[Rfam]
RNA sequence: GGUCUCUUGGCCCAGUUGGUUAAGGCACCGUGCUAAUAACGCGGGGAUCAGCGGUUCGAUCCCGCUAGAGACCA
Dot-bracket structure: (((((((..(((...........))).(((((.......))))).....(((((.......)))))))))))).
Numbered sequence: 001g002g003u004c005u006c007u008u009g010g011c012c013c014a015g016u017u018g019g020u021u022a023a024g025g026c027a028c029c030g031u032g033c034u035a036a037u038a039a040c041g042c043g044g045g046g047a048u049c050a051g052c053g054g055u056u057c058g059a060u061c062c063c064g065c066u067a068g069a070g071a072c073c074a
Stems, first nucleotide, its partner, number of pairs: 001073007010026003028044005050066005
This 74-nucleotide sequence from Saccharomyces cerevisiae belongs to the Rfam family "tRNA".
The family's consensus secondary structure is taken from published work.
About the family: Transfer RNA (tRNA) molecules are approximately 80 nucleotides in length.
By type it is a transfer RNA.